mir-1302 microRNA precursor family: a 52-nucleotide sequence from Delphinapterus leucas. A reference for the family is Morin et al. (2008), "Application of massively parallel sequencing to microRNA profiling and discovery in human embryonic stem cells", Genome Res. Rfam 15.1 lists 16,160 matches to the family in 135 species. Taxonomically the source falls in Delphinapterus (Eukaryota, Vertebrata, Mammalia, Boreoeutheria). Its family is annotated with miRNA-mediated post-transcriptional gene silencing and RISC complex in the Gene Ontology.
[Rfam]
RNA sequence: UUUUUAGUAUAAGUAUGUCCCAUACAAGAUUUGGGAUGUACUUAUGCUAAAC
Numbered sequence: 001u002u003u004u005u006a007g008u009a010u011a012a013g014u015a016u017g018u019c020c021c022a023u024a025c026a027a028g029a030u031u032u033g034g035g036a037u038g039u040a041c042u043u044a045u046g047c048u049a050a051a052c
Base pairs, nucleotide, nucleotide: 006048007047008046009045010044011043012042014040015039016038018036019035020034021033022031